[Rfam]
RNA sequence: CUUCGGGGGGUUAUUGCCUUGACGGGGGCAUUCAGUCUCUUUAGACUCAUGCACCCCUAAAUUUGGCAGGGCGCUAUGCCCUGUCAUUUUGCUUUUUUGUAAGGCAAUAGCGUCGAAAGACAACAGUGGAGCAAUUAGA
Number, nucleotide and partner (000 for none) at each position: 001c000002u000003u000004c021005g020006g019007g018008g017009g000010g000011u000012u000013a000014u000015u000016g000017c008018c007019u006020u005021g004022a000023c000024g000025g056026g055027g054028g052029c051030a050031u049032u000033c000034a047035g000036u000037c044038u043039c000040u000041u000042u000043a038044g037045a000046c000047u034048c000049a031050u030051g029052c028053a000054c027055c026056c025057c000058u000059a000060a000061a000062u000063u000064u086065g085066g084067c083068a082069g081070g080071g079072c078073g000074c000075u000076a000077u000078g072079c071080c070081c069082u068083g067084u066085c065086a064087u000088u000089u000090u000091g000092c000093u000094u000095u000096u000097u000098u000099g000100u000101a000102a000103g000104g000105c000106a136107a000108u134109a000110g132111c131112g121113u120114c119115g000116a000117a000118a000119g114120a113121c112122a000123a000124c000125a000126g000127u000128g000129g000130a000131g111132c110133a000134a108135u000136u106137a000138g000139a000
RNA: Pseudomonas rpsL leader